[Rfam]
RNA sequence: AACGAUGCUGAGAAAGAACGAAGUAGUUUUACAAAUCCCUAUUUAGAGAACUGGCGGUUGGUGAAAGUCAGGAAUAUUUGUAAAAUGAAUUACAUUCUGGAGCAUUUUCUUUAUGGUGUAAUAAAGAAACGGUGGCGACACCGUUAUCAAUCCCAAGUGGCAAGCAAUUGCAACAAGGGUGGUACCGCGUGUGAAUAUAACUCGUCCCUUUU
Numbered sequence: 001a002a003c004g005a006u007g008c009u010g011a012g013a014a015a016g017a018a019c020g021a022a023g024u025a026g027u028u029u030u031a032c033a034a035a036u037c038c039c040u041a042u043u044u045a046g047a048g049a050a051c052u053g054g055c056g057g058u059u060g061g062u063g064a065a066a067g068u069c070a071g072g073a074a075u076a077u078u079u080g081u082a083a084a085a086u087g088a089a090u091u092a093c094a095u096u097c098u099g100g101a102g103c104a105u106u107u108u109c110u111u112u113a114u115g116g117u118g119u120a121a122u123a124a125a126g127a128a129a130c131g132g133u134g135g136c137g138a139c140a141c142c143g144u145u146a147u148c149a150a151u152c153c154c155a156a157g158u159g160g161c162a163a164g165c166a167a168u169u170g171c172a173a174c175a176a177g178g179g180u181g182g183u184a185c186c187g188c189g190u191g192u193g194a195a196u197a198u199a200a201c202u203c204g205u206c207c208c209u210u211u212u
Stems, first nucleotide, its partner, number of pairs: 007103002015098004026086006040074001051071005106128003110124002130143003160171004176209004187205003191201001
Dot-bracket structure: ......((......((((.......((((((........(..........(((((...........)))))..)......))))))........))))...))..(((.((...........)).))).(((........)))................((((....))))....((((.......(((.(.........).)))))))...

A member of the RNA family "T-box leader" from Virgibacillus salarius, 212 nucleotides long. The family's consensus secondary structure is taken from published work. The literature on the family includes a 2001 paper in RNA by Winkler et al., "The GA motif: an RNA element common to bacterial antitermination systems, rRNA, and eukaryotic RNAs". The family's RNA type in Rfam is cis-regulatory leader.